[Rfam]
RNA sequence: CUUUGGGGUGAUGGGUGGAGCAAUGGGAUCAGGUGCUUCAAAGGGCAUCCCACCUAAUCCCACUGUCCACCCAUCACCCCAAAG
Numbered sequence: 001c002u003u004u005g006g007g008g009u010g011a012u013g014g015g016u017g018g019a020g021c022a023a024u025g026g027g028a029u030c031a032g033g034u035g036c037u038u039c040a041a042a043g044g045g046c047a048u049c050c051c052a053c054c055u056a057a058u059c060c061c062a063c064u065g066u067c068c069a070c071c072c073a074u075c076a077c078c079c080c081a082a083a084g
Base pairs, nucleotide, nucleotide: 002083003082004081005080006079007078008077009076010075011074012073013072014071015070016069017068018067019066021065024062025061026060027059028058029057031055032054033053034052035046036045037044038043
Rfam assigns this 84-nucleotide RNA from Sapajus apella to the family "mir-3151 microRNA precursor family". The base pairs follow the family's consensus structure, which was predicted with RNAalifold. NCBI's taxonomy places the organism under Eukaryota, Vertebrata, Dipnotetrapodomorpha, Cebinae, Sapajus. Its family is annotated with RISC complex and miRNA-mediated post-transcriptional gene silencing in the Gene Ontology.